[Rfam]
RNA sequence: GAGAUAUGAUGAUAUAUCUAUUUGGUCCGUGUUUCUGAUUUAACCGUGACCGAUAACCCUUUACCAAUGUCUGAUCUC
Numbered sequence: 001g002a003g004a005u006a007u008g009a010u011g012a013u014a015u016a017u018c019u020a021u022u023u024g025g026u027c028c029g030u031g032u033u034u035c036u037g038a039u040u041u042a043a044c045c046g047u048g049a050c051c052g053a054u055a056a057c058c059c060u061u062u063a064c065c066a067a068u069g070u071c072u073g074a075u076c077u078c
Stems, first nucleotide, its partner, number of pairs: 001078004
RNA: Small nucleolar RNA SNORD18
Organism: Acer saccharum